[Rfam]
RNA sequence: AAGGAGGAUGUGGGAGUUAACAUUCCUGCCUGAUACCAUCUUCCUAGAUUUAAUCUGCCAUUUUUUUUGCAUGCAGAACUAUUAGAAGGUUUUGCAGGCCUUAUUAGGCAGGACAUCUCU
Numbered sequence: 001a002a003g004g005a006g007g008a009u010g011u012g013g014g015a016g017u018u019a020a021c022a023u024u025c026c027u028g029c030c031u032g033a034u035a036c037c038a039u040c041u042u043c044c045u046a047g048a049u050u051u052a053a054u055c056u057g058c059c060a061u062u063u064u065u066u067u068u069g070c071a072u073g074c075a076g077a078a079c080u081a082u083u084a085g086a087a088g089g090u091u092u093u094g095c096a097g098g099c100c101u102u103a104u105u106a107g108g109c110a111g112g113a114c115a116u117c118u119c120u
Stems, first nucleotide, its partner, number of pairs: 001031001003029001005027001006025006056113001058111001069099002072096005078090003